Rfam assigns this 61-nucleotide RNA sequence from Anisodus acutangulus to the family "Plastid-psbA-2 3UTR RNA".
The family's consensus secondary structure was predicted with LocARNA.
By type it is a cis-regulatory element.
The source organism's lineage runs through Eukaryota, Pentapetalae, lamiids, Solanoideae and Anisodus.
Rfam's curators write: Plastid psbA-2 is a non-coding RNA (ncRNA) present in plastids. It was identified in inverted repeat sequences in the 3 prime untranslate region (3UTR) of photosystem II quinone-binding protein (psbA).
Clan: Plastid-psbA 3UTR RNA clan.
For this family Rfam cites "Retrograde signaling in plants: A critical review focusing on the GUN pathway and beyond" (Richter et al., Plant Commun, 2023).
A search with the family's covariance model found it, with a score of 56 bits.
[Rfam]
RNA sequence: AGAAAGGAGCGAUAAUCAUUUUCUUGUUCUAUUAAGAGGGUGCUAUUGCUCCUUUUUUAUA
Numbered sequence: 001a002g003a004a005a006g007g008a009g010c011g012a013u014a015a016u017c018a019u020u021u022u023c024u025u026g027u028u029c030u031a032u033u034a035a036g037a038g039g040g041u042g043c044u045a046u047u048g049c050u051c052c053u054u055u056u057u058u059a060u061a
Stems, first nucleotide, its partner, number of pairs: 001057014016042001017040001019038001022037005